mir-29 microRNA precursor family: a 67-nucleotide RNA sequence from Neogobius melanostomus. The family's consensus secondary structure was predicted with PFOLD. Rfam describes the family as follows. This family represents the microRNA (miRNA) precursors mir-29. The organism belongs to Neogobius, within Eukaryota.
RNA sequence: GGCUGACCGUUUUCCUCUGGUGUUCAGAGUUGCCAUCAUGUCUAGCACCAUUUGAAAUCGGUUACAA
Numbered sequence: 001g002g003c004u005g006a007c008c009g010u011u012u013u014c015c016u017c018u019g020g021u022g023u024u025c026a027g028a029g030u031u032g033c034c035a036u037c038a039u040g041u042c043u044a045g046c047a048c049c050a051u052u053u054g055a056a057a058u059c060g061g062u063u064a065c066a067a
Base pairs, nucleotide, nucleotide: 004064005062007061008060009059011057012056013055014054018050019049020048021047022046026043027042028041